Rfam assigns this 358-nucleotide RNA sequence from Schaalia cardiffensis to the family "Bacterial RNase P class A".
The match comes from Rfam's covariance-model search (302 bits).
By type it is a ribozyme.
The source organism's lineage runs through Bacteria, Bacillati, Actinomycetota, Actinomycetaceae and Schaalia cardiffensis.
RNA sequence: UGAGUCGGUCGGGCGGCCGCGUGAGGGAAACCUCCCGAGGAACGUCCGGGCUCCAUAGGGCAGGGUGAUGGCUAACAGCCACCCGGGGUGACCCGAGGGAUAGUGCCACAGAGAAUAGACCGCCUGGGGUUUGGGCCCGAGGCAAGGGUGAAACGGUGGGGUAAGAGCCCACCAGCGGUUCGGGUGACCGGAUCGGCUUGGAAAACCCCACCCGGAGCAAGACCGAGCAGCAGGCAGCGGAUGGCCCGUCCCCGUCCUGCGGGUAGGUCGCUUGAGGCCCGUGGUAACGCGGGUCCUAGAGAGAUGGUCGCCACCGUCUUCGACGGUACAGAACCCGGCGUACAGACUGGCUCAUCCG
Numbered sequence: 001u002g003a004g005u006c007g008g009u010c011g012g013g014c015g016g017c018c019g020c021g022u023g024a025g026g027g028a029a030a031c032c033u034c035c036c037g038a039g040g041a042a043c044g045u046c047c048g049g050g051c052u053c054c055a056u057a058g059g060g061c062a063g064g065g066u067g068a069u070g071g072c073u074a075a076c077a078g079c080c081a082c083c084c085g086g087g088g089u090g091a092c093c094c095g096a097g098g099g100a101u102a103g104u105g106c107c108a109c110a111g112a113g114a115a116u117a118g119a120c121c122g123c124c125u126g127g128g129g130u131u132u133g134g135g136c137c138c139g140a141g142g143c144a145a146g147g148g149u150g151a152a153a154c155g156g157u158g159g160g161g162u163a164a165g166a167g168c169c170c171a172c173c174a175g176c177g178g179u180u181c182g183g184g185u186g187a188c189c190g191g192a193u194c195g196g197c198u199u200g201g202a203a204a205a206c207c208c209c210a211c212c213c214g215g216a217g218c219a220a221g222a223c224c225g226a227g228c229a230g231c232a233g234g235c236a237g238c239g240g241a242u243g244g245c246c247c248g249u250c251c252c253c254g255u256c257c258u259g260c261g262g263g264u265a266g267g268u269c270g271c272u273u274g275a276g277g278c279c280c281g282u283g284g285u286a287a288c289g290c291g292g293g294u295c296c297u298a299g300a301g302a303g304a305u306g307g308u309c310g311c312c313a314c315c316g317u318c319u320u321c322g323a324c325g326g327u328a329c330a331g332a333a334c335c336c337g338g339c340g341u342a343c344a345g346a347c348u349g350g351c352u353c354a355u356c357c358g
Stems, first nucleotide, its partner, number of pairs: 001354010011343001012312007020037002023034004042341003046338005051217004058247004063213005069081004083097001084095004098208002103206002106201002120147002122143004127138004155173006175197001176195008221269004230260005239251004276295008